RNA sequence: AGAUAUGCAAAAUACUCCUUUAUGUCCCUUAUGCAUGUGUCCAGAAGCUAAGGGACAUAAAGGAGUAUUUUGCAUAUCU
Numbered sequence: 001a002g003a004u005a006u007g008c009a010a011a012a013u014a015c016u017c018c019u020u021u022a023u024g025u026c027c028c029u030u031a032u033g034c035a036u037g038u039g040u041c042c043a044g045a046a047g048c049u050a051a052g053g054g055a056c057a058u059a060a061a062g063g064a065g066u067a068u069u070u071u072g073c074a075u076a077u078c079u
Stems, first nucleotide, its partner, number of pairs: 007073019027053005